RNA sequence: ACACGAGAAGGGAGGUGGUUCGGCAGAUGUAUGACAACCGGACGCGUGAGGUGACUGCGGCCUAGGUCGCUGGUUCACACGACACGUGGCGAAGCCGGCGCCGCCGGCCAAUCCCAAGCAGUCACCCGAUCCGCGAGCCGCCGGUAAGUCCGGCCGGCUCCCCGAGGCCCCAGGGCCCCGGGGACCAAAGGCUCGCGGAUCGCUGCGU
Numbered sequence: 001a002c003a004c005g006a007g008a009a010g011g012g013a014g015g016u017g018g019u020u021c022g023g024c025a026g027a028u029g030u031a032u033g034a035c036a037a038c039c040g041g042a043c044g045c046g047u048g049a050g051g052u053g054a055c056u057g058c059g060g061c062c063u064a065g066g067u068c069g070c071u072g073g074u075u076c077a078c079a080c081g082a083c084a085c086g087u088g089g090c091g092a093a094g095c096c097g098g099c100g101c102c103g104c105c106g107g108c109c110a111a112u113c114c115c116a117a118g119c120a121g122u123c124a125c126c127c128g129a130u131c132c133g134c135g136a137g138c139c140g141c142c143g144g145u146a147a148g149u150c151c152g153g154c155c156g157g158c159u160c161c162c163c164g165a166g167g168c169c170c171c172a173g174g175g176c177c178c179c180g181g182g183g184a185c186c187a188a189a190g191g192c193u194c195g196c197g198g199a200u201c202g203c204u205g206c207g208u
Stems, first nucleotide, its partner, number of pairs: 015058005060109001062107002065104001068100003072096003127202013140158006
Shown here is a 208-nucleotide RNA from Streptomyces zhaozhouensis, a member of the family "Actinobacteria sRNA Ms_IGR-5". The source organism's lineage runs through Bacteria, Actinomycetota, Kitasatosporales, Streptomycetaceae and Streptomyces. Pairs were carried over by alignment from the consensus structure.